Shown here is a 129-nucleotide sequence from Tupaia belangeri, a member of the family "Small nucleolar RNA SNORA38". About the family: ACA38 is a member of the H/ACA class of snoRNA that guide the sites of modification of uridines to pseudouridines. A search with the family's covariance model found it, with a score of 103 bits. NCBI's taxonomy places the organism under Eukaryota, Eumetazoa, Deuterostomia, Gnathostomata, Tupaia belangeri.
RNA sequence: CCUUCCUACAAAGGUGUGUCUGCUUCACUAUCUUUGGACACAUAAGAAUUAGGGGCAAAGAAAUAGGGAUUUGGAGAAAUCUGGGAUCAGUUCACUCCCCACAGGUUCAAGAUUAACCCUCCCACAUAG
Numbered sequence: 001c002c003u004u005c006c007u008a009c010a011a012a013g014g015u016g017u018g019u020c021u022g023c024u025u026c027a028c029u030a031u032c033u034u035u036g037g038a039c040a041c042a043u044a045a046g047a048a049u050u051a052g053g054g055g056c057a058a059a060g061a062a063a064u065a066g067g068g069a070u071u072u073g074g075a076g077a078a079a080u081c082u083g084g085g086a087u088c089a090g091u092u093c094a095c096u097c098c099c100c101a102c103a104g105g106u107u108c109a110a111g112a113u114u115a116a117c118c119c120u121c122c123c124a125c126a127u128a129g
Base pairs, nucleotide, nucleotide: 002055003054004053005052015042016041017040018039019038020037021036022028067122068121069120089107090106091105092104